[Rfam]
RNA sequence: UUCGUAAAUUUGAGGCCACAGCAGAACUGCUCACGGCACAGCCCUGUCAGACUCCAAAGAAUCUGUAAAUUCUGCU
Numbered sequence: 001u002u003c004g005u006a007a008a009u010u011u012g013a014g015g016c017c018a019c020a021g022c023a024g025a026a027c028u029g030c031u032c033a034c035g036g037c038a039c040a041g042c043c044c045u046g047u048c049a050g051a052c053u054c055c056a057a058a059g060a061a062u063c064u065g066u067a068a069a070u071u072c073u074g075c076u
Stems, first nucleotide, its partner, number of pairs: 012044001014043003020076007028038002048065004053060002
Mammalian CPEB3 ribozyme: a 76-nucleotide RNA from Crocodylus porosus.
Taxonomically the source falls in Crocodylus (Eukaryota, Deuterostomia, Euteleostomi, Tetrapoda).
The mammalian CPEB3 ribozyme is a self cleaving RNA located in the second intron of the CPEB3 gene which belongs to a family of genes regulating messenger RNA polyadenylation.
A reference for the family is Salehi-Ashtiani et al. (2006), "A genomewide search for ribozymes reveals an HDV-like sequence in the human CPEB3 gene", Science.
A search with the family's covariance model found it, with a score of 49 bits.